[Rfam]
RNA sequence: UUUAAUGAUGAAGAUUUUAAUUUUCCGUUGGUCUAUUAAGAACAGAAGUACUUCAAAACUACUUUUUAAGACCAUCCUUUUGCAGUAUUUUUUUGAUAUUGUAAAACUUCUCACUUACUGUGUGCCUUAUGGUCUCGUCGUUCUGAUGGACCGUAAUCAGACGCACAGUAUACUUCGUUUCUGUUGGAGAAUAUUGGGAGUCUUUUAAUGUGAUGAGCGGCCAACAUAACCUUUUAGUCAUAGUUACACUGAUU
Number, nucleotide and partner (000 for none) at each position: 001u000002u000003u000004a000005a241006u240007g239008a238009u237010g025011a024012a023013g022014a021015u020016u000017u000018u000019a000020a015021u014022u013023u012024u011025c010026c000027g225028u224029u223030g222031g221032u220033c219034u000035a000036u217037u216038a000039a000040g000041a000042a211043c210044a209045g065046a064047a063048g062049u061050a060051c000052u000053u000054c000055a000056a000057a000058a000059c000060u050061a049062c048063u047064u046065u045066u000067u000068a204069a203070g202071a201072c200073c000074a000075u000076c000077c000078u106079u105080u104081u103082g102083c101084a100085g099086u098087a097088u096089u095090u000091u000092u000093u000094u000095g089096a088097u087098a086099u085100u084101g083102u082103a081104a080105a079106a078107c000108u000109u199110c198111u197112c196113a000114c000115u000116u170117a169118c168119u167120g166121u165122g164123u163124g162125c000126c160127u159128u156129a154130u153131g152132g151133u150134c149135u000136c148137g147138u146139c145140g000141u000142u000143c000144u000145g139146a138147u137148g136149g134150a133151c132152c131153g130154u129155a000156a128157u000158c000159a127160g126161a000162c124163g123164c122165a121166c120167a119168g118169u117170a116171u000172a000173c189174u188175u187176c186177g185178u000179u000180u000181c000182u000183g000184u000185u177186g176187g175188a174189g173190a000191a000192u000193a000194u000195u000196g112197g111198g110199a109200g072201u071202c070203u069204u068205u000206u000207a000208a000209u044210g043211u042212g000213a000214u000215g000216a037217g036218c000219g033220g032221c031222c030223a029224a028225c027226a000227u000228a000229a000230c000231c000232u000233u000234u000235u000236a000237g009238u008239c007240a006241u005242a000243g000244u000245u000246a000247c000248a000249c000250u000251g000252a000253u000254u000
RNA: Small nucleolar RNA snR63